RNA: Selenocysteine insertion sequence 1
Organism: Chiloscyllium punctatum
RNA sequence: UUGCCUCUAUGAGGACAGCAGCACAAACUAUUCUGUAGGAGCUGCUAUUUGAUGUAAGGCAA
Number, nucleotide and partner (000 for none) at each position: 001u062002u061003g060004c059005c000006u000007c000008u000009a000010u000011g000012a000013g000014g049015a048016c000017a046018g045019c044020a043021g042022c041023a000024c000025a000026a000027a000028c038029u037030a036031u000032u000033c000034u000035g000036u030037a029038g028039g000040a000041g022042c021043u020044g019045c018046u017047a000048u015049u014050u000051g000052a000053u000054g000055u000056a000057a000058g000059g004060c003061a002062a001